The record is a 92-nucleotide RNA from Galleria mellonella, which matches "mir-2788 microRNA precursor family" in Rfam. Pairs were carried over by alignment from the consensus structure, which was predicted with RNAalifold. NCBI's taxonomy places the organism under Eukaryota, Panorpida, Neolepidoptera, Galleriinae, Galleria.
[Rfam]
RNA sequence: GAGGCGCGUCGCCGUAAAGCUGGGGUUUCUAGGCGGUAUGUGCUUCCCACCAUGCAAUGCCCUUGGAAAUCCCAAACGUGCUGGCGACCACU
Number, nucleotide and partner (000 for none) at each position: 001g000002a000003g000004g000005c000006g000007c000008g088009u087010c086011g085012c084013c083014g081015u080016a079017a000018a000019g000020c000021u074022g073023g072024g071025g070026u069027u068028u067029c066030u000031a064032g063033g062034c000035g061036g060037u059038a058039u057040g000041u056042g055043c054044u000045u000046c000047c000048c000049a000050c000051c000052a000053u000054g043055c042056a041057a039058u038059g037060c036061c035062c033063u032064u031065g000066g029067a028068a027069a026070u025071c024072c023073c022074a021075a000076a000077c000078g000079u016080g015081c014082u000083g013084g012085c011086g010087a009088c008089c000090a000091c000092u000